[Rfam]
RNA sequence: UCCAAAAAUACAGUGAUGUUACCUUUUCCAAGCACAUAACUGAUUACUCUGUGUGGAAAAUGACUGUUCUGAGUGAUUUUGGA
Numbered sequence: 001u002c003c004a005a006a007a008a009u010a011c012a013g014u015g016a017u018g019u020u021a022c023c024u025u026u027u028c029c030a031a032g033c034a035c036a037u038a039a040c041u042g043a044u045u046a047c048u049c050u051g052u053g054u055g056g057a058a059a060a061u062g063a064c065u066g067u068u069c070u071g072a073g074u075g076a077u078u079u080u081g082g083a
Stems, first nucleotide, its partner, number of pairs: 001083006009075003
RNA: Small nucleolar RNA SNORD121A
Organism: Tinamus guttatus